Shown here is a 167-nucleotide sequence from Suillus subaureus, a member of the family "small nucleolar RNA snR35". A search with the family's covariance model found it, with a score of 43 bits. NCBI's taxonomy places the organism under Eukaryota, Opisthokonta, Agaricomycotina, Suillineae, Suillus. The base pairs follow the family's consensus structure, which was predicted with RNAalifold. Rfam 15.1 lists 75 matches to the family in 66 species. Clan: SNORA13 clan. The family's RNA type in Rfam is H/ACA-box small nucleolar RNA.
RNA sequence: UUUGUGCGGCGACACGGCCAGACCUUCCCCAUGUUGCUCAUAGCUGCCCAUAGUCCACGCGGCUGUUUGAGUGUCAGGCCGUGUCCUGAAUAAUUGGACGUCUUAGCACCCAUUAUCGCGUCGUCCGACUUUUCUCGAGAAGCGAUGGGUCGGUGGUUCAUACAUAU
Numbered sequence: 001u002u003u004g005u006g007c008g009g010c011g012a013c014a015c016g017g018c019c020a021g022a023c024c025u026u027c028c029c030c031a032u033g034u035u036g037c038u039c040a041u042a043g044c045u046g047c048c049c050a051u052a053g054u055c056c057a058c059g060c061g062g063c064u065g066u067u068u069g070a071g072u073g074u075c076a077g078g079c080c081g082u083g084u085c086c087u088g089a090a091u092a093a094u095u096g097g098a099c100g101u102c103u104u105a106g107c108a109c110c111c112a113u114u115a116u117c118g119c120g121u122c123g124u125c126c127g128a129c130u131u132u133u134c135u136c137g138a139g140a141a142g143c144g145a146u147g148g149g150u151c152g153g154u155g156g157u158u159c160a161u162a163c164a165u166a167u
Base pairs, nucleotide, nucleotide: 021085022084023083024081036072037071038070039069040068044062045061046060047059095160096159097158098157099156113148114147115146116145117144118143119142121140122137123136